[Rfam]
RNA sequence: GGUUGCAAGUUUGAGGCCAUAGCAGAAGCAUUUGUGGUGCUGUCCUGUCGGAUUCCUAUGAAUCUGUGAAUUCUGCU
Numbered sequence: 001g002g003u004u005g006c007a008a009g010u011u012u013g014a015g016g017c018c019a020u021a022g023c024a025g026a027a028g029c030a031u032u033u034g035u036g037g038u039g040c041u042g043u044c045c046u047g048u049c050g051g052a053u054u055c056c057u058a059u060g061a062a063u064c065u066g067u068g069a070a071u072u073c074u075g076c077u
Stems, first nucleotide, its partner, number of pairs: 013045001015044003021077007028040003049066007